[Rfam]
RNA sequence: UCUCAGCCUGUGACUCUCUGGACAGAAGCACGUUCUGUUGUCUGAGAGAAAUAGAAAGUGUUUCUGUUCAGAGGAUUACUGUUUGAGA
Numbered sequence: 001u002c003u004c005a006g007c008c009u010g011u012g013a014c015u016c017u018c019u020g021g022a023c024a025g026a027a028g029c030a031c032g033u034u035c036u037g038u039u040g041u042c043u044g045a046g047a048g049a050a051a052u053a054g055a056a057a058g059u060g061u062u063u064c065u066g067u068u069c070a071g072a073g074g075a076u077u078a079c080u081g082u083u084u085g086a087g088a
Stems, first nucleotide, its partner, number of pairs: 001088005008081001010079004016073003020069012033056003038053001039051001
Rfam assigns this 88-nucleotide RNA from Cebus imitator to the family "mir-515 microRNA precursor family".
Clan: mir-290 clan.
The match comes from Rfam's covariance-model search (78 bits).
Rfam 15.1 lists 1,056 matches to the family in 27 species.
On this family, see Bentwich et al., Nat Genet 2005: "Identification of hundreds of conserved and nonconserved human microRNAs".